[Rfam]
RNA sequence: GGUCACCCCAAAGGUGUGAUGCCUGAGAACACACAAGGCAUUAGUUGCUAUAUUAAUAGUAUUAGCAUAACUAAUGCAUUUUGUGUUCUCAGGUCACCCCUUUGGGACACCU
Number, nucleotide and partner (000 for none) at each position: 001g000002g000003u000004c000005a000006c000007c106008c105009c000010a000011a102012a101013g100014g099015u000016g097017u096018g095019a094020u000021g000022c000023c000024u000025g090026a089027g088028a087029a086030c085031a084032c083033a082034c000035a000036a000037g000038g000039c000040a000041u000042u000043a000044g000045u000046u000047g000048c000049u000050a000051u000052a000053u000054u000055a000056a000057u000058a000059g000060u000061a000062u000063u000064a000065g000066c000067a000068u000069a000070a000071c000072u000073a000074a000075u000076g000077c000078a000079u000080u000081u000082u033083g032084u031085g030086u029087u028088c027089u026090c025091a000092g000093g000094u019095c018096a017097c016098c000099c014100c013101u012102u011103u000104g000105g008106g007107a000108c000109a000110c000111c000112u000

About this RNA:
This 112-nucleotide RNA from Prunus persica belongs to the Rfam family "MIR398 microRNA precursor family". A search with the family's covariance model found it, with a score of 74 bits. The family has 14 seed sequences and 627 matches in Rfam 15.1. The organism belongs to Prunus, within Eukaryota.